[Rfam]
Nucleotides: 087
Stems, first nucleotide, its partner, number of pairs: 007081007019031004033066003036062002040060003046054002
Number, partner (000 for none) and nucleotide at each position: 001000c002000g003000c004000g005000a006000c007081u008080c009079g010078a011077c012076g013075g014000g015000a016000g017000a018000a019031c020030c021029g022028g023000c024000c025000a026000u027000g028022c029021c030020g031019g032000u033066g034065c035064c036062g037061a038000a039000g040060g041059a042058g043000c044000a045000a046054c047053c048000g049000c050000c051000c052000c053047g054046g055000a056000a057000a058042c059041u060040c061037u062036c063000a064035g065034g066033c067000c068000c069000c070000g071000a072000g073000g074000a075013c076012c077011g078010u079009c080008g081007a082000u083000g084000u085000c086000g087000c
Source information
Rfam assigns this 87-nucleotide RNA from Marinovum algicola to the family "Glycine riboswitch aptamer". It scores 53 bits against the family's covariance model. Pairs were carried over by alignment from the consensus structure.